[Rfam]
RNA: Small nucleolar RNA Z105
Organism: Zea mays
RNA sequence: CGGGCAUAAUGAGGAAGAUCUUGAUGUGUCUGAUCUAAUUGAUGAGAAAUACCUUCUAAUCAUUCUGA
Number, nucleotide and partner (000 for none) at each position: 001c000002g000003g000004g000005c000006a063007u062008a000009a060010u000011g000012a000013g000014g000015a000016a000017g000018a000019u000020c000021u000022u000023g000024a000025u000026g000027u046028g000029u000030c041031u000032g000033a000034u000035c000036u000037a000038a000039u000040u000041g030042a000043u000044g000045a000046g027047a000048a000049a000050u000051a000052c000053c000054u000055u000056c000057u000058a000059a000060u009061c000062a007063u006064u000065c000066u000067g000068a000